[Rfam]
RNA sequence: AUGCCUCCGUGUCCUAUGGCUUUUUAUUCCUAUGUGAUGAUGAAAAAAAAUGUUCGUGUAGGAAUAGAAGCCAUUUUACACGCGGCGA
Number, nucleotide and partner (000 for none) at each position: 001a000002u087003g086004c085005c084006u000007c082008c000009g081010u080011g079012u078013c000014c000015u000016a074017u073018g072019g071020c070021u069022u068023u067024u000025u000026a065027u064028u063029c062030c061031u060032a059033u058034g057035u056036g055037a054038u000039g000040a000041u000042g000043a000044a000045a000046a000047a000048a000049a000050a000051u000052g000053u000054u037055c036056g035057u034058g033059u032060a031061g030062g029063a028064a027065u026066a000067g023068a022069a021070g020071c019072c018073a017074u016075u000076u000077u000078a012079c011080a010081c009082g007083c000084g005085g004086c003087g002088a000
This 88-nucleotide sequence from Sparus aurata belongs to the Rfam family "mir-135 microRNA precursor family".
Lineage of the source: Eukaryota > Metazoa > Vertebrata > Ctenosquamata > Sparus.
It scores 60 bits against the family's covariance model.
The literature on the family includes a 2002 paper in Curr Biol by Lagos-Quintana et al., "Identification of tissue-specific microRNAs from mouse".
Pairs were carried over by alignment from the consensus structure, which was predicted with PFOLD.
Rfam 15.1 lists 2,125 matches to the family in 647 species.